[Rfam]
RNA sequence: AUAGCGCACUGACAGGGAGGGUGAGAACCCUCGACAGGGUUCGACAAAACGCCUGCGUUUUGGACCGCCAACGGCGGCCCGCAGGGUGAGCGUAACGAAUCAAUCCCUCCCUCACCGCCA
Dot-bracket structure: ..............((((((((.........((.(....(.((...((.........))......((((...))))...)).).).))..............).))))))).........
RNA: RtT RNA